Small nucleolar RNA SNORA3/SNORA45 family: a 128-nucleotide RNA from Microcebus murinus. Rfam links the family to the GO terms nucleolus and RNA processing. The literature on the family includes a 2001 paper in EMBO J by Huttenhofer et al., "RNomics: an experimental approach that identifies 201 candidates for novel, small, non-messenger RNAs in mouse". Rfam describes the family as follows. The members of this family belong to the H/ACA class of snoRNAs which are thought to guide the sites of modification of uridines to pseudouridines. This family includes mouse snoMBI-28 and human homologues ACA3 (SNORA3) and ACA3-2 (SNORA45). Both ACA3 and ACA3-2 share the same host gene. MBI-28, ACA3 and ACA3-2 are all predicted to guide the pseudouridylation of residues in 28S rRNA. The base pairs follow the family's consensus structure, which was predicted with RNAalifold. Its Rfam clan is "SNORA3 clan".

[Rfam]
RNA sequence: GGAGGCUACAGUCAUGCUUGGAUAUUGGUUAUUGUCUUAGUGUGCUAGAGUCCUCAAAGAAUAACCGUUGACUUUAUUCACUGGCUGUGACCCUCAUAGCACAGUCAGUCACCAGGUUACUGACAUGC
Numbered sequence: 001g002g003a004g005g006c007u008a009c010a011g012u013c014a015u016g017c018u019u020g021g022a023u024a025u026u027g028g029u030u031a032u033u034g035u036c037u038u039a040g041u042g043u044g045c046u047a048g049a050g051u052c053c054u055c056a057a058a059g060a061a062u063a064a065c066c067g068u069u070g071a072c073u074u075u076a077u078u079c080a081c082u083g084g085c086u087g088u089g090a091c092c093c094u095c096a097u098a099g100c101a102c103a104g105u106c107a108g109u110c111a112c113c114a115g116g117u118u119a120c121u122g123a124c125a126u127g128c
Base pairs, nucleotide, nucleotide: 002055003054004053005051006050007049010046011045013044014043015042016041017040018039021036022035023034024033069119070118071117072116073115074114080109081108082107083106084105086103087102088101089100091099